CRISPR RNA direct repeat element: a 37-nucleotide sequence from Nitrosomonas eutropha. The family has 7 seed sequences and 1,410 matches in Rfam 15.1. Lineage of the source: Bacteria > Pseudomonadati > Betaproteobacteria > Nitrosomonadales > Nitrosomonas eutropha. The family's consensus secondary structure was predicted with WAR. It is one of the family's seed sequences.
RNA sequence: GUAGCGCCCGGUCACCCGACUGGGCGAGGAUUGAAAC
Number, nucleotide and partner (000 for none) at each position: 001g000002u000003a000004g000005c026006g025007c024008c023009c022010g021011g020012u019013c018014a000015c000016c000017c000018g013019a012020c011021u010022g009023g008024g007025c006026g005027a000028g000029g000030a000031u000032u000033g000034a000035a000036a000037c000